About this RNA
The family of this 128-nucleotide RNA sequence from Tupaia belangeri is "Small nucleolar RNA SNORA14". ACA14 is a member of the H/ACA class of snoRNA that guide the sites of modification of uridines to pseudouridines.
RNA sequence: GCGCAUUCCGAAACCCUCUUGGUAGCCUGGCUCUCGCGCUUCCAGGGUAUGCGUGAAUGCGACAGCAACGCAGGGAGUCCAAGGACUGUGCUUCUGUGGCUCCGUCCCAUUUCCUACCUGCGAUAUUU
Numbered sequence: 001g002c003g004c005a006u007u008c009c010g011a012a013a014c015c016c017u018c019u020u021g022g023u024a025g026c027c028u029g030g031c032u033c034u035c036g037c038g039c040u041u042c043c044a045g046g047g048u049a050u051g052c053g054u055g056a057a058u059g060c061g062a063c064a065g066c067a068a069c070g071c072a073g074g075g076a077g078u079c080c081a082a083g084g085a086c087u088g089u090g091c092u093u094c095u096g097u098g099g100c101u102c103c104g105u106c107c108c109a110u111u112u113c114c115u116a117c118c119u120g121c122g123a124u125a126u127u128u
Base pairs, nucleotide, nucleotide: 003060004059005058006057008053011050017047018046019045020044021043022042024040025039026038064128065127069122070121071120072119073118074117083107084106085105086104088102090100091099
A search with the family's covariance model found it, with a score of 80 bits. The source organism's lineage runs through Eukaryota, Deuterostomia, Craniata, Vertebrata and Tupaia belangeri.